[Rfam]
RNA sequence: GAAGAGCGGCCAGUUGCUGCUGCGAUCAAGACACGAUCGUUCAAAAGGGUGCAACUCCCCCCCCCUUGGAGGGUAUCCAAGACC
Numbered sequence: 001g002a003a004g005a006g007c008g009g010c011c012a013g014u015u016g017c018u019g020c021u022g023c024g025a026u027c028a029a030g031a032c033a034c035g036a037u038c039g040u041u042c043a044a045a046a047g048g049g050u051g052c053a054a055c056u057c058c059c060c061c062c063c064c065c066u067u068g069g070a071g072g073g074u075a076u077c078c079a080a081g082a083c084c
Base pairs, nucleotide, nucleotide: 006020007019008018009017010016013052022040023039024038025037026036027035047059048058049057061073062072063071066080067079068078069077070076
Dot-bracket structure: .....(((((..[..))))).((((((.......))))))......(((..]....))).[[[..(((((]]]..)))))....
The family of this 84-nucleotide sequence from Pomovirus solani is "Tymovirus/Pomovirus/Furovirus tRNA-like 3' UTR element".
Taxonomically the source falls in Pomovirus solani (Viruses, Orthornavirae, Kitrinoviricota, Alsuviricetes).
For this family Rfam cites "The tRNA-like structure of Turnip yellow mosaic virus RNA is a 3'-translational enhancer" (Matsuda and Dreher, Virology, 2004).
From the family's description: This family represents a tRNA-like structure found in the 3' UTR of Tymoviruses, Pomoviruses and Furovirus.
The family's RNA type in Rfam is cis-regulatory element.
Gene Ontology term of the family: regulation of translation.
Pairs were carried over by alignment from the consensus structure, which is taken from published work.